RNA sequence: AAAAAGUGGAGACAGUGCCCACUAAAAAAACGUGGCGGAAACCGAAAAGCCUAUGAGUAGGUAAUCUU
Numbered sequence: 001a002a003a004a005a006g007u008g009g010a011g012a013c014a015g016u017g018c019c020c021a022c023u024a025a026a027a028a029a030a031c032g033u034g035g036c037g038g039a040a041a042c043c044g045a046a047a048a049g050c051c052u053a054u055g056a057g058u059a060g061g062u063a064a065u066c067u068u
Base pairs, nucleotide, nucleotide: 006022007021008020009019034051035050036049041062042061
RNA: DUF805 RNA